[Rfam]
RNA sequence: CUCUUAUCCUGAGUGGUGGAGGGACAUGGACCCAACGAAGCCCAGCAACCUCUUUUAUCCUAUAUAAAAGAAAGGUGCCAAACCGUUUGCAGACAAUAGUCUGAACGAUAAGAG
Numbered sequence: 001c002u003c004u005u006a007u008c009c010u011g012a013g014u015g016g017u018g019g020a021g022g023g024a025c026a027u028g029g030a031c032c033c034a035a036c037g038a039a040g041c042c043c044a045g046c047a048a049c050c051u052c053u054u055u056u057a058u059c060c061u062a063u064a065u066a067a068a069a070g071a072a073a074g075g076u077g078c079c080a081a082a083c084c085g086u087u088u089g090c091a092g093a094c095a096a097u098a099g100u101c102u103g104a105a106c107g108a109u110a111a112g113a114g
Stems, first nucleotide, its partner, number of pairs: 001114008013043001015042003021033003027089003045078003049075002051071007090103005
This 114-nucleotide RNA sequence from Staphylococcus massiliensis belongs to the Rfam family "SAM riboswitch aptamer (S box leader)".